[Rfam]
RNA sequence: AGUGAGCGACCCAACAGCCUGCCCAUUGCCUGGGCACGGCACCAAUCCAAUCGUCAGUGGCUCGCCGGAUGU
Numbered sequence: 001a002g003u004g005a006g007c008g009a010c011c012c013a014a015c016a017g018c019c020u021g022c023c024c025a026u027u028g029c030c031u032g033g034g035c036a037c038g039g040c041a042c043c044a045a046u047c048c049a050a051u052c053g054u055c056a057g058u059g060g061c062u063c064g065c066c067g068g069a070u071g072u
Stems, first nucleotide, its partner, number of pairs: 007071002017040003020036002023033003051069002
Dot-bracket structure: ......((........(((((.(((.....))).)).)))..........((...............)))).
Background
Shown here is a 72-nucleotide sequence, a member of the family "Pseudomonas sRNA P10". The family's RNA type in Rfam is small RNA. The base pairs follow the family's consensus structure, which was predicted with WAR. Rfam 15.1 lists 62 matches to the family in 42 species. For this family Rfam cites "Identification of 17 Pseudomonas aeruginosa sRNAs and prediction of sRNA-encoding genes in 10 diverse pathogens using the bioinformatic tool sRNAPredict2" (Livny et al., Nucleic Acids Res, 2006).